[Rfam]
RNA: Burkholderia sRNA Bp2_Cand287_SIPHT
Organism: Paraburkholderia xenovorans
RNA sequence: AAAAAGCCCGCUUUUGCGUCGGCAUAAGCGGGCUUCAUGUGCGGGGGAAAGCUGGAGCGGAGGCGGAUGAGUGCGGCUUUUCCACCCUUCGCUUUAGCUGUUUCGGGUUGCCCCGCGUCCGCAAGCUGAGAUCAAAUCGACGCAAGCCGCCAUGCUAACACGCUCCCGGCGCGGCGUGC
Dot-bracket structure: ...(((((((((..(((....)))..)))))))))....((((......(((...((..(.((.(((...........))))).)..)).)))((((((.....(((....)))((....)).))))))...........))))..............((((((........)))))).